[Rfam]
RNA sequence: AUCCGAUAAAGGCAAACCUUUGGAAACGGAGGGACGCAAAGCUAUAGGGGCUAAGAUUCAAUUGAAUGAUGCCUGCCAGCUACCGAA
Numbered sequence: 001a002u003c004c005g006a007u008a009a010a011g012g013c014a015a016a017c018c019u020u021u022g023g024a025a026a027c028g029g030a031g032g033g034a035c036g037c038a039a040a041g042c043u044a045u046a047g048g049g050g051c052u053a054a055g056a057u058u059c060a061a062u063u064g065a066a067u068g069a070u071g072c073c074u075g076c077c078a079g080c081u082a083c084c085g086a087a
Stems, first nucleotide, its partner, number of pairs: 012037002017032006040081004047077002049073003056067004
The family of this 87-nucleotide RNA sequence from Radiobacillus deserti is "c-di-GMP-I riboswitch aptamer". Rfam's curators write: GEMM was predicted in a large-scale screen for bacterial structured RNA regulatory elements.